[Rfam]
RNA sequence: GGCCGGUCCAAAUGUGGUGGUGUCUAUAAUUGUUCAUGACUCUGGUUACAAAUGUCUUUGUUCUUUCUCCACUGUCACUGCUUCAGUUAACUAGUUUGAA
Numbered sequence: 001g002g003c004c005g006g007u008c009c010a011a012a013u014g015u016g017g018u019g020g021u022g023u024c025u026a027u028a029a030u031u032g033u034u035c036a037u038g039a040c041u042c043u044g045g046u047u048a049c050a051a052a053u054g055u056c057u058u059u060g061u062u063c064u065u066u067c068u069c070c071a072c073u074g075u076c077a078c079u080g081c082u083u084c085a086g087u088u089a090a091c092u093a094g095u096u097u098g099a100a
Stems, first nucleotide, its partner, number of pairs: 001096003005092003010088002014084001016079006028062003032058001
This 100-nucleotide RNA sequence from Sapajus apella belongs to the Rfam family "Y RNA".
Y RNAs are components of the Ro ribonucleoprotein particle (Ro RNP), in association with Ro60 and La proteins. The Y RNAs and Ro60 and La proteins are well conserved, but the function of the Ro RNP is not known. In humans the RNA component can be one of four small RNAs -- hY1, hY3, hY4 and hY5. These small RNAs are predicted to fold into a conserved secondary structure containing three stem structures. The largest of the four, hY1, contains an additional hairpin. This family includes a significant number of annotated pseudogenes and the model is expected to discriminate poorly between real and Y RNA related pseudogenes.
A search with the family's covariance model found it, with a score of 39 bits.
The source organism's lineage runs through Eukaryota, Eumetazoa, Deuterostomia, Cebidae and Sapajus.
Rfam classes the family as a non-coding RNA gene.